[Rfam]
RNA sequence: GACCUAAACUGAGUACGGCUCGGCAUGGUUUAGAAAGCAACGGAAAGAAAAAGCUCGUCAUGAGUACUUCUUUCCGUUGUCAUGGCUCGAAAGGGCUAUGGGUAGCCGCAAGGCUGCC
Numbered sequence: 001g002a003c004c005u006a007a008a009c010u011g012a013g014u015a016c017g018g019c020u021c022g023g024c025a026u027g028g029u030u031u032a033g034a035a036a037g038c039a040a041c042g043g044a045a046a047g048a049a050a051a052a053g054c055u056c057g058u059c060a061u062g063a064g065u066a067c068u069u070c071u072u073u074c075c076g077u078u079g080u081c082a083u084g085g086c087u088c089g090a091a092a093g094g095g096c097u098a099u100g101g102g103u104a105g106c107c108g109c110a111a112g113g114c115u116g117c118c
Base pairs, nucleotide, nucleotide: 001030002029003028004027009023010022011021012020013019014018038079039078040077041076042075043074044073045072046071047070048069053065054064055063056062081100082099083098084097085096086095087094088093101118102117103116104115105114106113
Annotation: This 118-nucleotide RNA belongs to the Rfam family "LOOT RNA". By type it is a small RNA. The family's consensus secondary structure is taken from published work.